The family of this 100-nucleotide RNA sequence from Protea cynaroides is "Small nucleolar RNA R30/Z108". Rfam links the family to the GO terms RNA processing and nucleolus. The base pairs follow the family's consensus structure, which was predicted with PFOLD. The family has 6 seed sequences and 626 matches in Rfam 15.1. Rfam classes the family as a C/D-box small nucleolar RNA. About the family: snoR30 is a C/D box small nucleolar RNA which acts as a methylation guide for 18S ribosomal RNA in plants. The source organism's lineage runs through Eukaryota, Streptophyta, Embryophyta, Euphyllophyta and Protea. Its Rfam clan is "SNORD100 clan". It scores 87 bits against the family's covariance model.

RNA sequence: AAAGGUUGCGAUGAGGAUAAUAAGCUCCCUCUUCUGAAAUGAAGCUGAGGACGAAUGCUGGCAGAAUCGAACCUAAUACUUUACCGCCACUACUGAGUAA
Numbered sequence: 001a002a003a004g005g006u007u008g009c010g011a012u013g014a015g016g017a018u019a020a021u022a023a024g025c026u027c028c029c030u031c032u033u034c035u036g037a038a039a040u041g042a043a044g045c046u047g048a049g050g051a052c053g054a055a056u057g058c059u060g061g062c063a064g065a066a067u068c069g070a071a072c073c074u075a076a077u078a079c080u081u082u083a084c085c086g087c088c089a090c091u092a093c094u095g096a097g098u099a100a
Base pairs, nucleotide, nucleotide: 006100007099008098009097